RNA: Selenocysteine insertion sequence 1
Organism: Pleuronectes platessa
RNA sequence: GUGGCGUUUAUGAAGGUCUGGCCCUAAAGCAGACUCUGUGGGGCCCGGCCGGAUGUCCCUUCGCCAC
Numbered sequence: 001g002u003g004g005c006g007u008u009u010a011u012g013a014a015g016g017u018c019u020g021g022c023c024c025u026a027a028a029g030c031a032g033a034c035u036c037u038g039u040g041g042g043g044c045c046c047g048g049c050c051g052g053a054u055g056u057c058c059c060u061u062c063g064c065c066a067c
Base pairs, nucleotide, nucleotide: 001067002066003065004064005063015050016049017048018047020045021044022043023042024041030038031037032036